[Rfam]
RNA sequence: AUCUUAUAACGAGUGGUGGAGGGAAAGGCCCGAUGAAGCCCGGCAACCCACUGCAGGAGGGCAGUCCUGCAGGAAGGUGCUACGACCUGCAGCAAAAGCUGCGUGAUAAGAU
Numbered sequence: 001a002u003c004u005u006a007u008a009a010c011g012a013g014u015g016g017u018g019g020a021g022g023g024a025a026a027g028g029c030c031c032g033a034u035g036a037a038g039c040c041c042g043g044c045a046a047c048c049c050a051c052u053g054c055a056g057g058a059g060g061g062c063a064g065u066c067c068u069g070c071a072g073g074a075a076g077g078u079g080c081u082a083c084g085a086c087c088u089g090c091a092g093c094a095a096a097a098g099c100u101g102c103g104u105g106a107u108a109a110g111a112u
Stems, first nucleotide, its partner, number of pairs: 001112007013041001015040003021031003026088003042081004047077002051072007085104001090101004
The record is a 112-nucleotide sequence from Terribacillus saccharophilus, which matches "SAM riboswitch aptamer (S box leader)" in Rfam. NCBI's taxonomy places the organism under Bacteria, Bacillati, Bacillota, Caryophanales, Terribacillus.